SAM riboswitch aptamer (S box leader): a 112-nucleotide RNA from Lihuaxuella thermophila. The source organism's lineage runs through Bacteria, Bacillota, Bacilli, Caryophanales and Lihuaxuella. Rfam's curators write: The SAM riboswitch is found upstream of a number of genes which code for proteins involved in methionine or cysteine biosynthesis in Gram-positive bacteria.
RNA sequence: CUCUUAUCCAGAGAGGUGUAGGGACAGGCCCGAUGAUACCUCGGCAACCAUCUGCCAUCAGGGCAGAAAGGUGCCAAUUCCUGCAGAACAUGGAUGUUCUGGCAGAUGAGAG
Numbered sequence: 001c002u003c004u005u006a007u008c009c010a011g012a013g014a015g016g017u018g019u020a021g022g023g024a025c026a027g028g029c030c031c032g033a034u035g036a037u038a039c040c041u042c043g044g045c046a047a048c049c050a051u052c053u054g055c056c057a058u059c060a061g062g063g064c065a066g067a068a069a070g071g072u073g074c075c076a077a078u079u080c081c082u083g084c085a086g087a088a089c090a091u092g093g094a095u096g097u098u099c100u101g102g103c104a105g106a107u108g109a110g111a112g
Stems, first nucleotide, its partner, number of pairs: 001112008013042005021031003025083004043075004048071002051067004079104001084101006